[Rfam]
RNA: Bacterial large subunit ribosomal RNA, nucleotides 9 to 608
Organism: Thermoanaerobacterium thermosaccharolyticum
RNA sequence: UACAAAGGGCGUAUGGUGGAUGCCCAGGCACUUAGAGCCGAAGAAGGACGCAGCGAGCGGCGAAACGCUCCGGGGAGUCGCAAGCAGACGUAGAUCCGGAGAUUUCCGAAUGGGGAAACCCGCUUAAGGUAAUACUUAAGCAUCCCAUGGUGAACACAUAGCCAUGGGAGGGGAAACCGCGUGAACUGAAACAUCUAAGUAGCGCGAGGAAAAGAAAGAAACAUCGAUUUCCUAAGUAGCGGCGAGCGAAAAGGAAAGAGCCCAAACCCGGCACUCAAUUAGGGAUGCUAUACAAAAAGAAAGAAGAAAAAAAUAGCAAUCCUAAUUGAGUGCCGGGGGUUUAGGACCACGAGAAGGUAUAUGGAGUGAAGCCGAACAGACCUGGGAAGGCAGGCCAAAGAAGGUGAAAGCCCUGUAGGCGUAAGCUUUAAAUACCGAGUGGGAUCCAGAGUACCACAGGAUAGGCAACCCGGUGGGAAGACGGGAGGACCAUCUCCCAAGGCUAAAUACUCCUAAGUGACCGAUAGCGCAAAGUACCGUGAGGGAAAGGUGAAAAGAACCCCGGGAGGGGAGUGAAAGAGAACCUGAAACCAUAUGUCC
Numbered sequence: 001u002a003c004a005a006a007g008g009g010c011g012u013a014u015g016g017u018g019g020a021u022g023c024c025c026a027g028g029c030a031c032u033u034a035g036a037g038c039c040g041a042a043g044a045a046g047g048a049c050g051c052a053g054c055g056a057g058c059g060g061c062g063a064a065a066c067g068c069u070c071c072g073g074g075g076a077g078u079c080g081c082a083a084g085c086a087g088a089c090g091u092a093g094a095u096c097c098g099g100a101g102a103u104u105u106c107c108g109a110a111u112g113g114g115g116a117a118a119c120c121c122g123c124u125u126a127a128g129g130u131a132a133u134a135c136u137u138a139a140g141c142a143u144c145c146c147a148u149g150g151u152g153a154a155c156a157c158a159u160a161g162c163c164a165u166g167g168g169a170g171g172g173g174a175a176a177c178c179g180c181g182u183g184a185a186c187u188g189a190a191a192c193a194u195c196u197a198a199g200u201a202g203c204g205c206g207a208g209g210a211a212a213a214g215a216a217a218g219a220a221a222c223a224u225c226g227a228u229u230u231c232c233u234a235a236g237u238a239g240c241g242g243c244g245a246g247c248g249a250a251a252a253g254g255a256a257a258g259a260g261c262c263c264a265a266a267c268c269c270g271g272c273a274c275u276c277a278a279u280u281a282g283g284g285a286u287g288c289u290a291u292a293c294a295a296a297a298a299g300a301a302a303g304a305a306g307a308a309a310a311a312a313a314u315a316g317c318a319a320u321c322c323u324a325a326u327u328g329a330g331u332g333c334c335g336g337g338g339g340u341u342u343a344g345g346a347c348c349a350c351g352a353g354a355a356g357g358u359a360u361a362u363g364g365a366g367u368g369a370a371g372c373c374g375a376a377c378a379g380a381c382c383u384g385g386g387a388a389g390g391c392a393g394g395c396c397a398a399a400g401a402a403g404g405u406g407a408a409a410g411c412c413c414u415g416u417a418g419g420c421g422u423a424a425g426c427u428u429u430a431a432a433u434a435c436c437g438a439g440u441g442g443g444a445u446c447c448a449g450a451g452u453a454c455c456a457c458a459g460g461a462u463a464g465g466c467a468a469c470c471c472g473g474u475g476g477g478a479a480g481a482c483g484g485g486a487g488g489a490c491c492a493u494c495u496c497c498c499a500a501g502g503c504u505a506a507a508u509a510c511u512c513c514u515a516a517g518u519g520a521c522c523g524a525u526a527g528c529g530c531a532a533a534g535u536a537c538c539g540u541g542a543g544g545g546a547a548a549g550g551u552g553a554a555a556a557g558a559a560c561c562c563c564g565g566g567a568g569g570g571g572a573g574u575g576a577a578a579g580a581g582a583a584c585c586u587g588a589a590a591c592c593a594u595a596u597g598u599c600c
Stems, first nucleotide, its partner, number of pairs: 007600010022585001023550002027522002029519007036511002038172002046107003049062003068101007077089003112121003122141007143169009177208001178206005188195002218225002228507001229256005239247002259504004267337018344447002347442004357435004362430006371420003377393001379391001381390002396400001402414003454476004459471002462468001483498005537544002560571004